[Rfam]
RNA sequence: UUUCGGGGCCAGAUCGUCGCUCCGAUGUUCUUUGCAGCAUGGGAGAGGAAAGUCCGGACACCGCAGGGCAGGACGCCGCACGAGCCGAGGCCGCAAGGCGGAGGCAAGUGCGGGCGGCGCGCGUCAAGGCGCGACCGACGGAGAGUGUCACAGAAAACAAACCACCAGACCGGCGAACGGGUAACCGUUUUUCGGUCGGGCAAGGGUGAAAAGGUGGGGUAAGAGCCCACCGCGUCGCGCAGCAAUGCCGGCGGCACGAAAAACCCCGUCCGGUGCAAGGCAAAAUAGGUGGCUGGGUGGCCCGCCCUUAAGCCACGGGUAUGCCGCAUCAGUCCGCAAGGACUGGAGCGGGCGCGAGUCCGCUAGAGAAAUGGCGAUCACCCGUCCUCCCCCCGGAGGACGGCGAACAUAAUCCGGCUUACGGCCCCGAAACCAA
Number, nucleotide and partner (000 for none) at each position: 001u432002u431003u430004c429005g428006g427007g426008g425009c424010c423011a000012g379013a378014u377015c376016g375017u374018c373019g000020c045021u044022c043023c042024g000025a040026u039027g038028u037029u000030c000031u000032u000033u000034g000035c000036a000037g028038c027039a026040u025041g000042g023043g022044a021045g020046a000047g000048g000049a000050a420051a419052g418053u000054c417055c416056g415057g414058a413059c275060a274061c273062c272063g000064c000065a000066g303067g302068g301069c300070a000071g271072g270073a269074c268075g267076c113077c112078g111079c110080a109081c000082g000083a000084g000085c000086c000087g000088a000089g000090g000091c000092c000093g000094c000095a000096a000097g000098g000099c000100g000101g000102a000103g000104g000105c000106a000107a000108g000109u080110g079111c078112g077113g076114g139115c137116g136117g135118c000119g000120c000121g000122c000123g000124u000125c000126a000127a000128g000129g000130c000131g000132c000133g000134a000135c117136c116137g115138a000139c114140g266141g265142a000143g000144a000145g264146u263147g000148u259149c258150a000151c000152a000153g000154a000155a000156a000157a000158c000159a000160a000161a000162c205163c204164a000165c200166c199167a000168g197169a196170c195171c194172g193173g000174c000175g000176a000177a000178c000179g000180g000181g000182u000183a000184a000185c000186c000187g000188u000189u000190u000191u000192u000193c172194g171195g170196u169197c168198g000199g166200g165201c000202a000203a000204g163205g162206g000207u000208g000209a000210a000211a000212a000213g231214g230215u229216g228217g227218g226219g000220u000221a000222a000223g000224a000225g000226c218227c217228c216229a215230c214231c213232g255233c253234g252235u251236c250237g249238c000239g248240c247241a246242g000243c000244a000245a000246u241247g240248c239249c237250g236251g235252c234253g233254g000255c232256a000257c000258g149259a148260a000261a000262a000263a146264c145265c141266c140267c075268g074269u073270c072271c071272g062273g061274u060275g059276c000277a000278a000279g325280g324281c323282a322283a000284a000285a000286u000287a000288g000289g316290u315291g314292g313293c312294u311295g307296g306297g305298u304299g000300g069301c068302c067303c066304g298305c297306c296307c295308u000309u000310a000311a294312g293313c292314c291315a290316c289317g000318g000319g000320u000321a000322u282323g281324c280325c279326g000327c000328a000329u000330c000331a000332g000333u000334c000335c000336g000337c000338a000339a000340g000341g000342a000343c000344u000345g000346g000347a000348g000349c000350g000351g000352g000353c000354g000355c000356g000357a000358g000359u000360c000361c000362g000363c000364u000365a000366g000367a000368g000369a000370a000371a000372u000373g018374g017375c016376g015377a014378u013379c012380a000381c000382c000383c000384g000385u000386c000387c000388u000389c000390c000391c000392c000393c000394c000395g000396g000397a000398g000399g000400a000401c000402g000403g000404c000405g000406a000407a000408c000409a000410u000411a000412a000413u058414c057415c056416g055417g054418c052419u051420u050421a000422c000423g010424g009425c008426c007427c006428c005429g004430a003431a002432a001433c000434c000435a000436a000